[Rfam]
RNA sequence: CUUUUCGAGGAGCGUUGCAGCGCAGCCAAGCCAGGGUGCGUGAGGCUCGAAAAGACAACAGGGGCUGCUGGCCCGCUGCUUGUCUGGCAACGACGCUCACCCACG
Numbered sequence: 001c002u003u004u005u006c007g008a009g010g011a012g013c014g015u016u017g018c019a020g021c022g023c024a025g026c027c028a029a030g031c032c033a034g035g036g037u038g039c040g041u042g043a044g045g046c047u048c049g050a051a052a053a054g055a056c057a058a059c060a061g062g063g064g065c066u067g068c069u070g071g072c073c074c075g076c077u078g079c080u081u082g083u084c085u086g087g088c089a090a091c092g093a094c095g096c097u098c099a100c101c102c103a104c105g
Base pairs, nucleotide, nucleotide: 002053003052004051005050006049007048008047021040022039023038024037026035
Rfam assigns this 105-nucleotide RNA from Comamonas denitrificans to the family "SAH (S-adenosyl-L-homocysteine) riboswitch aptamer". The organism belongs to Comamonas, within Bacteria. It scores 54 bits against the family's covariance model.